[Rfam]
RNA sequence: GUCGCGGUGUAGUCCCAUCGGGCGUCGGCGUCCAGCAGGGCGUUCUCGCCGAAGCGGUCGCCGUCGGCGAGGACCGCGACGGCCACCUCGUCGUCGUACUUGCCGAGCGAGGUCUGGUUGAUGCGCCCGUGGGCGACGAGGUGGAUCUCCGCGGCGGGGGCGCCGCGCGAGACGAGGACCUCGCCGGCGCUGAAGUCGCGCUGCACGCAGCGGGCGGCCAGCGCGUUCAGCACCUCGUCGUCGUCGAAGCCGCGCAGCAGGGCGAGUUCGCCGAGCUCGCGGGGGAUCACCCGGACGCGUGCCCCGUCCUGCACGAACUCGACGCGCCCGUCCCCGACGGUGUAGCUGAGCCGCCGGUUGACCCGGUAGGCACCGCCCUUGGUCUCCACCCAGGGGAGCAUCCGCAGCAGCCAGCGGGAGCUGAUCUCCUGCAUCUGCGGGGCGGACUUGGUGGUGGUGGCCAGGUUCCGGGCGGCGGCGGUACUGAGGCUGGACUGCUUCG
Numbered sequence: 001g002u003c004g005c006g007g008u009g010u011a012g013u014c015c016c017a018u019c020g021g022g023c024g025u026c027g028g029c030g031u032c033c034a035g036c037a038g039g040g041c042g043u044u045c046u047c048g049c050c051g052a053a054g055c056g057g058u059c060g061c062c063g064u065c066g067g068c069g070a071g072g073a074c075c076g077c078g079a080c081g082g083c084c085a086c087c088u089c090g091u092c093g094u095c096g097u098a099c100u101u102g103c104c105g106a107g108c109g110a111g112g113u114c115u116g117g118u119u120g121a122u123g124c125g126c127c128c129g130u131g132g133g134c135g136a137c138g139a140g141g142u143g144g145a146u147c148u149c150c151g152c153g154g155c156g157g158g159g160g161c162g163c164c165g166c167g168c169g170a171g172a173c174g175a176g177g178a179c180c181u182c183g184c185c186g187g188c189g190c191u192g193a194a195g196u197c198g199c200g201c202u203g204c205a206c207g208c209a210g211c212g213g214g215c216g217g218c219c220a221g222c223g224c225g226u227u228c229a230g231c232a233c234c235u236c237g238u239c240g241u242c243g244u245c246g247a248a249g250c251c252g253c254g255c256a257g258c259a260g261g262g263c264g265a266g267u268u269c270g271c272c273g274a275g276c277u278c279g280c281g282g283g284g285g286a287u288c289a290c291c292c293g294g295a296c297g298c299g300u301g302c303c304c305c306g307u308c309c310u311g312c313a314c315g316a317a318c319u320c321g322a323c324g325c326g327c328c329c330g331u332c333c334c335c336g337a338c339g340g341u342g343u344a345g346c347u348g349a350g351c352c353g354c355c356g357g358u359u360g361a362c363c364c365g366g367u368a369g370g371c372a373c374c375g376c377c378c379u380u381g382g383u384c385u386c387c388a389c390c391c392a393g394g395g396g397a398g399c400a401u402c403c404g405c406a407g408c409a410g411c412c413a414g415c416g417g418g419a420g421c422u423g424a425u426c427u428c429c430u431g432c433a434u435c436u437g438c439g440g441g442g443c444g445g446a447c448u449u450g451g452u453g454g455u456g457g458u459g460g461c462c463a464g465g466u467u468c469c470g471g472g473c474g475g476c477g478g479c480g481g482u483a484c485u486g487a488g489g490c491u492g493g494a495c496u497g498c499u500u501c502g
Stems, first nucleotide, its partner, number of pairs: 006390004011385002014382002020327001022325002025322004031316002035312008048302002050299002054233001058229001060227001062225003065105004077096007117222004122217001126213002130209001131206001133204003138199001140197001143196001150192001154190003159185003163177001166174002235295002240290002243287003250282005256277003260271001262269001329342004353377001355375003362370002391431007399423002403418001405416001407415001437476002440473001443470004447465006477501002480496003484492001486490001
Dot-bracket structure: .....((((.((.((....(.((.((((..((..((((((((.....((((..(...(.(.(((((((........(((((((......))))))).....))))...........((((.(...((..((.(((..(.(..(......(...(((..(((.(..((.....))..).....)))..))).)...)).)..))).)..)..))...).))))))).).)...).((...((.(((....(((((.(((.(.(......).)...))))))))..))).))...))..)).))..))))))))..))..)))).)).).((((......))))..........(.(((....((.....))..))).)...)).)).))))(((((((.((..(.(.(.......)).)...)).))))))).....((.(..((((((((((.......)))))).))))..).))((.(((.(.(...).).)))...)).
Saccharopolyspora sRNA 350: a 502-nucleotide RNA sequence from Streptomyces sp. adm13(2018).
Lineage of the source: Bacteria > Bacillati > Actinomycetota > Kitasatosporales > Streptomyces.
It scores 130 bits against the family's covariance model.
By type it is an antisense RNA.